[Rfam]
terC RNA: a 64-nucleotide sequence from Allosphingorhabdus lutea. NCBI's taxonomy places the organism under Bacteria, Pseudomonadota, Sphingomonadales, Sphingorhabdaceae, Allosphingorhabdus.
RNA sequence: UAAACGGGCCGGGCCCCUCUGGCGUAUUUGUUUUUUAACUGAUGCGUGAUGUCGGACCGUUUAU
Numbered sequence: 001u002a003a004a005c006g007g008g009c010c011g012g013g014c015c016c017c018u019c020u021g022g023c024g025u026a027u028u029u030g031u032u033u034u035u036u037a038a039c040u041g042a043u044g045c046g047u048g049a050u051g052u053c054g055g056a057c058c059g060u061u062u063a064u
Stems, first nucleotide, its partner, number of pairs: 006058002009055004022047007

The base pairs follow the family's consensus structure, which is taken from published work.